This 336-nucleotide sequence from Haloflavibacter putidus belongs to the Rfam family "Bacterial RNase P class A". Rfam classes the family as a ribozyme. Rfam's curators write: Ribonuclease P (RNase P) is a ubiquitous endoribonuclease, found in archaea, bacteria and eukarya as well as chloroplasts and mitochondria.
RNA sequence: AAAGUAGGUCGUCUUAUCGCUUUGGUAUUUACCAGAGAGGAAAGUCCGGACACCAAAGAGCAGCAUAGCGGCUAACAGCCGUCAUAUAAAUAUUAAUAGUAUUUGUAUAGGACAAGUGCAACAGAAAGAAUGUACAGGUAAUGCUGUAGUGAAACCAGGUAAACUCUAUGCGGUGCAAUGUCAUGUAAACCGGUUUUAAAAUCUGCUCGAUUAUUGCCGGAGGGUAGACAGCUUAGAAAUUUUUGGCAACAAAAAUUCCAGAUAAAUGAUAAGAAGCUUAUCGUGAUAAUUAUUGAGAUAAGUGUACAGAAUUCGGCUUAUAGACCUACUUUUUAU
Numbered sequence: 001a002a003a004g005u006a007g008g009u010c011g012u013c014u015u016a017u018c019g020c021u022u023u024g025g026u027a028u029u030u031a032c033c034a035g036a037g038a039g040g041a042a043a044g045u046c047c048g049g050a051c052a053c054c055a056a057a058g059a060g061c062a063g064c065a066u067a068g069c070g071g072c073u074a075a076c077a078g079c080c081g082u083c084a085u086a087u088a089a090a091u092a093u094u095a096a097u098a099g100u101a102u103u104u105g106u107a108u109a110g111g112a113c114a115a116g117u118g119c120a121a122c123a124g125a126a127a128g129a130a131u132g133u134a135c136a137g138g139u140a141a142u143g144c145u146g147u148a149g150u151g152a153a154a155c156c157a158g159g160u161a162a163a164c165u166c167u168a169u170g171c172g173g174u175g176c177a178a179u180g181u182c183a184u185g186u187a188a189a190c191c192g193g194u195u196u197u198a199a200a201a202u203c204u205g206c207u208c209g210a211u212u213a214u215u216g217c218c219g220g221a222g223g224g225u226a227g228a229c230a231g232c233u234u235a236g237a238a239a240u241u242u243u244u245g246g247c248a249a250c251a252a253a254a255a256u257u258c259c260a261g262a263u264a265a266a267u268g269a270u271a272a273g274a275a276g277c278u279u280a281u282c283g284u285g286a287u288a289a290u291u292a293u294u295g296a297g298a299u300a301a302g303u304g305u306a307c308a309g310a311a312u313u314c315g316g317c318u319u320a321u322a323g324a325c326c327u328a329c330u331u332u333u334u335a336u
Stems, first nucleotide, its partner, number of pairs: 001332010011321001012274007020037007042319003046316005051175004058208004063171005068082005083110001084108010111166002116164002118160002133148005179230004190220005200212004238257008